RNA sequence: UCGUGCUAGAUGGGGAGAUAGCGGUGCCCUUUUCCUGCAAUCCGCUUAGCAGGGUUGAAUUCCUACACCGAGGCUUACUUUUGUAGGGUCUGCCCCAAGCAAGAAACGAUGAUAAUUGGGUCUCACGCAACGAAACCCUGCGAACCCCGUCAGGUCCGGAAGGAAGCAGCGGUAAACAGGCACUUUCGUGUGCCGUGGGGGGUCCUGGUUUGAGUUUACUACUUGGGUAACGCUUGUAGUAGUUAGUCGAAGGUAGGUGCACGG
Numbered sequence: 001u002c003g004u005g006c007u008a009g010a011u012g013g014g015g016a017g018a019u020a021g022c023g024g025u026g027c028c029c030u031u032u033u034c035c036u037g038c039a040a041u042c043c044g045c046u047u048a049g050c051a052g053g054g055u056u057g058a059a060u061u062c063c064u065a066c067a068c069c070g071a072g073g074c075u076u077a078c079u080u081u082u083g084u085a086g087g088g089u090c091u092g093c094c095c096c097a098a099g100c101a102a103g104a105a106a107c108g109a110u111g112a113u114a115a116u117u118g119g120g121u122c123u124c125a126c127g128c129a130a131c132g133a134a135a136c137c138c139u140g141c142g143a144a145c146c147c148c149g150u151c152a153g154g155u156c157c158g159g160a161a162g163g164a165a166g167c168a169g170c171g172g173u174a175a176a177c178a179g180g181c182a183c184u185u186u187c188g189u190g191u192g193c194c195g196u197g198g199g200g201g202g203u204c205c206u207g208g209u210u211u212g213a214g215u216u217u218a219c220u221a222c223u224u225g226g227g228u229a230a231c232g233c234u235u236g237u238a239g240u241a242g243u244u245a246g247u248c249g250a251a252g253g254u255a256g257g258u259g260c261a262c263g264g
Stems, first nucleotide, its partner, number of pairs: 001264006009056003012030004017025001019023001034053005062257005068252001072248004078242002081239007091229002095226005103219001105216003114210007122199006128190002131188005137180004147172004155164003
The record is a 264-nucleotide RNA sequence from Pseudobacteroides cellulosolvens, which matches "Bacterial large signal recognition particle RNA" in Rfam. Clan: SRP clan. On this family, see Regalia et al., Nucleic Acids Res 2002: "Prediction of signal recognition particle RNA genes". Gene Ontology terms of the family: SRP-dependent cotranslational protein targeting to membrane, signal sequence recognition and signal recognition particle, plasma membrane targeting. The source organism's lineage runs through Bacteria, Bacillati, Bacillota, Clostridia and Pseudobacteroides cellulosolvens. Rfam classes the family as a non-coding RNA gene. A search with the family's covariance model found it, with a score of 192 bits.